[Rfam]
RNA: MIR4387 microRNA precursor family
RNA sequence: GAUUAUCGGUUCGUCGUUAACAAUUAACGACGGAUUAUUGUUUCGUCGUUAACAAUUGUUAACGACGAAACAAUAAUCCGUCGUUAAUUGUUAACGACGAACCGAUAAUCCGU
Dot-bracket structure: ..(((((((((((((((((((.(((((((((((.(((((((((((((((((((....))))))))))))))))))).))))))))))).))))))))))))))))))).....
Numbered sequence: 001g002a003u004u005a006u007c008g009g010u011u012c013g014u015c016g017u018u019a020a021c022a023a024u025u026a027a028c029g030a031c032g033g034a035u036u037a038u039u040g041u042u043u044c045g046u047c048g049u050u051a052a053c054a055a056u057u058g059u060u061a062a063c064g065a066c067g068a069a070a071c072a073a074u075a076a077u078c079c080g081u082c083g084u085u086a087a088u089u090g091u092u093a094a095c096g097a098c099g100a101a102c103c104g105a106u107a108a109u110c111c112g113u
Stems, first nucleotide, its partner, number of pairs: 003108019023088011035076019